[Rfam]
RNA sequence: UGCCUUCUCGUGUUGCCCGUUUGCUGUCUCCUACAGCGAAUGCGGUGUCGAUAAAGGCAAACAUCAAUGUUUUGGAUUGGCCUAAGCAAGGUUCUACCCCAGUAGCCUUGUCUUAAGUUCUAUACCAAGAACACUU
Numbered sequence: 001u002g003c004c005u006u007c008u009c010g011u012g013u014u015g016c017c018c019g020u021u022u023g024c025u026g027u028c029u030c031c032u033a034c035a036g037c038g039a040a041u042g043c044g045g046u047g048u049c050g051a052u053a054a055a056g057g058c059a060a061a062c063a064u065c066a067a068u069g070u071u072u073u074g075g076a077u078u079g080g081c082c083u084a085a086g087c088a089a090g091g092u093u094c095u096a097c098c099c100c101a102g103u104a105g106c107c108u109u110g111u112c113u114u115a116a117g118u119u120c121u122a123u124a125c126c127a128a129g130a131a132c133a134c135u136u
Stems, first nucleotide, its partner, number of pairs: 002058005011050002014047004018042008071129004076123002079120002085118001089114002091111002

Source information
The record is a 136-nucleotide sequence from Tetraodon nigroviridis, which matches "Small nucleolar RNA SNORA13" in Rfam. The organism belongs to Tetraodon, within Eukaryota. The family's RNA type in Rfam is H/ACA-box small nucleolar RNA. The base pairs follow the family's consensus structure, which was predicted with CMfinder. The sequence is in the family's curated seed alignment. From the family's description: ACA13 is a member of the H/ACA class of snoRNA that guide the sites of modification of uridines to pseudouridines.